The record is a 102-nucleotide sequence from Anaeromonas frigoriresistens, which matches "Purine riboswitch aptamer" in Rfam.

RNA sequence: AUGAAAAGUGAAUAGAGGAUCCAUAUAAUAUCGGAAAUAAGGUCCGAGAGUCUCUACCAGAUGACCGUAAAUCAUCUGACUAUGGGUGAAAUUUUAGUUAGG
Numbered sequence: 001a002u003g004a005a006a007a008g009u010g011a012a013u014a015g016a017g018g019a020u021c022c023a024u025a026u027a028a029u030a031u032c033g034g035a036a037a038u039a040a041g042g043u044c045c046g047a048g049a050g051u052c053u054c055u056a057c058c059a060g061a062u063g064a065c066c067g068u069a070a071a072u073c074a075u076c077u078g079a080c081u082a083u084g085g086g087u088g089a090a091a092u093u094u095u096a097g098u099u100a101g102g
Base pairs, nucleotide, nucleotide: 019087020086021085022084023083024082025081029049031047032046033045034044035043058078059077060076061075062074063073064072
NCBI's taxonomy places the organism under Bacteria, Tissierellia, Tissierellales, Thermohalobacteraceae, Anaeromonas.